[Rfam]
RNA: Mammalian CPEB3 ribozyme
Organism: Crocodylus porosus
RNA sequence: GGUUGCAAGUUUAAGGUCACAGCAGAAGUGUUCACACCAUGUCCCAUCAGAUUCAAUAAAUCUGUGAAUUCUGCU
Numbered sequence: 001g002g003u004u005g006c007a008a009g010u011u012u013a014a015g016g017u018c019a020c021a022g023c024a025g026a027a028g029u030g031u032u033c034a035c036a037c038c039a040u041g042u043c044c045c046a047u048c049a050g051a052u053u054c055a056a057u058a059a060a061u062c063u064g065u066g067a068a069u070u071c072u073g074c075u
Stems, first nucleotide, its partner, number of pairs: 015044002018041001021075007028040003048064006